[Rfam]
RNA sequence: UGGCCCAUGGUGUAAUUGGUAACACAUCUGCUUUUGGUGCAGACAUUCCGGGUUCGAGUCCUGGUGGGCCAA
Numbered sequence: 001u002g003g004c005c006c007a008u009g010g011u012g013u014a015a016u017u018g019g020u021a022a023c024a025c026a027u028c029u030g031c032u033u034u035u036g037g038u039g040c041a042g043a044c045a046u047u048c049c050g051g052g053u054u055c056g057a058g059u060c061c062u063g064g065u066g067g068g069c070c071a072a
Stems, first nucleotide, its partner, number of pairs: 001071007010025004027043005048064005
Rfam assigns this 72-nucleotide RNA from Tenacibaculum piscium to the family "tRNA". It scores 62 bits against the family's covariance model. Rfam's curators write: Transfer RNA (tRNA) molecules are approximately 80 nucleotides in length. Rfam classes the family as a transfer RNA. The base pairs follow the family's consensus structure, which is taken from published work. Rfam links the family to the GO term triplet codon-amino acid adaptor activity.